[Rfam]
RNA: Lysine riboswitch aptamer
Organism: Alkalihalobacillus trypoxylicola
RNA sequence: AGUGAUGGUAGAGGCGCGAAAAUUAUAAGUAGAGAAAACGUAGAGCAAUGAGGCUUUGUGAUGUUUUUUUGAAAGGGAAAUUCGCCGAAGUGUAUAAGAAGCUCAUAUUCUUUUAUGCUGGACUUAUGUUGAAGAAGCAUAAGGCUGUCACUUAACUAACCCAAGGUUAGGUGGAGAACUAUCUCACGU
Numbered sequence: 001a002g003u004g005a006u007g008g009u010a011g012a013g014g015c016g017c018g019a020a021a022a023u024u025a026u027a028a029g030u031a032g033a034g035a036a037a038a039c040g041u042a043g044a045g046c047a048a049u050g051a052g053g054c055u056u057u058g059u060g061a062u063g064u065u066u067u068u069u070u071g072a073a074a075g076g077g078a079a080a081u082u083c084g085c086c087g088a089a090g091u092g093u094a095u096a097a098g099a100a101g102c103u104c105a106u107a108u109u110c111u112u113u114u115a116u117g118c119u120g121g122a123c124u125u126a127u128g129u130u131g132a133a134g135a136a137g138c139a140u141a142a143g144g145c146u147g148u149c150a151c152u153u154a155a156c157u158a159a160c161c162c163a164a165g166g167u168u169a170g171g172u173g174g175a176g177a178a179c180u181a182u183c184u185c186a187c188g189u
Stems, first nucleotide, its partner, number of pairs: 007183005016085005023078002032070010089119006096112005120146002123143008148174010